[Rfam]
RNA sequence: UCUGGCAAUGAUGACAUCCUUGCCCUCACUGAGAACGGGUGUUCAGUAAUGAAAAUAUUGUUAUGUACUCAGAUGUGCUGAGCUAGA
Numbered sequence: 001u002c003u004g005g006c007a008a009u010g011a012u013g014a015c016a017u018c019c020u021u022g023c024c025c026u027c028a029c030u031g032a033g034a035a036c037g038g039g040u041g042u043u044c045a046g047u048a049a050u051g052a053a054a055a056u057a058u059u060g061u062u063a064u065g066u067a068c069u070c071a072g073a074u075g076u077g078c079u080g081a082g083c084u085a086g087a
Base pairs, nucleotide, nucleotide: 001087002086003085004084005083006082
The family of this 87-nucleotide RNA from Pogona vitticeps is "Small nucleolar RNA SNORD103/SNORD85". For this family Rfam cites "Identification of 13 novel human modification guide RNAs" (Vitali et al., Nucleic Acids Res, 2003). Rfam 15.1 lists 1,349 matches to the family in 595 species. Its family is annotated with nucleolus and RNA processing in the Gene Ontology. Rfam classes the family as a C/D-box small nucleolar RNA. The match comes from Rfam's covariance-model search (68 bits).